[Rfam]
RNA sequence: CGCAAAGGAUGAGACUUAAUCAUUCAGUUAUCCCUGUCUGAACACACUUGUUGAGAAUUUUAUACUCUGAUCUUCCG
Numbered sequence: 001c002g003c004a005a006a007g008g009a010u011g012a013g014a015c016u017u018a019a020u021c022a023u024u025c026a027g028u029u030a031u032c033c034c035u036g037u038c039u040g041a042a043c044a045c046a047c048u049u050g051u052u053g054a055g056a057a058u059u060u061u062a063u064a065c066u067c068u069g070a071u072c073u074u075c076c077g
Stems, first nucleotide, its partner, number of pairs: 001077002004074002007071001
Dot-bracket structure: ((.((.(...............................................................).)).))
RNA: Small nucleolar RNA R38